[Rfam]
RNA: T-box leader
RNA sequence: UUAGUUACAAAGAACAAGAGGAGUAAUUAGAGACUGCUAUUAAAGAGAGCUAGGGAUGGUGGAAGCCUAGUAUAGUAAUCUGAUGAAGGGCGCUUGGGAGUAACUGAUAAUAAAGUGAAUCCUGAUAAAGAGGAUUAAACAGGGUGGAACCGCGGGUAACCUCGUCCCUGAU
Numbered sequence: 001u002u003a004g005u006u007a008c009a010a011a012g013a014a015c016a017a018g019a020g021g022a023g024u025a026a027u028u029a030g031a032g033a034c035u036g037c038u039a040u041u042a043a044a045g046a047g048a049g050c051u052a053g054g055g056a057u058g059g060u061g062g063a064a065g066c067c068u069a070g071u072a073u074a075g076u077a078a079u080c081u082g083a084u085g086a087a088g089g090g091c092g093c094u095u096g097g098g099a100g101u102a103a104c105u106g107a108u109a110a111u112a113a114a115g116u117g118a119a120u121c122c123u124g125a126u127a128a129a130g131a132g133g134a135u136u137a138a139a140c141a142g143g144g145u146g147g148a149a150c151c152g153c154g155g156g157u158a159a160c161c162u163c164g165u166c167c168c169u170g171a172u
Stems, first nucleotide, its partner, number of pairs: 007101002015096004026084006038074003049071006118136006141169004152165005